[Rfam]
RNA sequence: UAGCGGUCCAGGGGUAUAGUAGACUAUACAUCUGGGAAGCUAGCCAGGGAAACACCACUGUUAGUGGGAAGAUUAACUGGC
Numbered sequence: 001u002a003g004c005g006g007u008c009c010a011g012g013g014g015u016a017u018a019g020u021a022g023a024c025u026a027u028a029c030a031u032c033u034g035g036g037a038a039g040c041u042a043g044c045c046a047g048g049g050a051a052a053c054a055c056c057a058c059u060g061u062u063a064g065u066g067g068g069a070a071g072a073u074u075a076a077c078u079g080g081c
Base pairs, nucleotide, nucleotide: 001042002041003040004039009034010033011032012031014029015028016027017026018025019024043081044080045079046078047077055067056066057065058064059063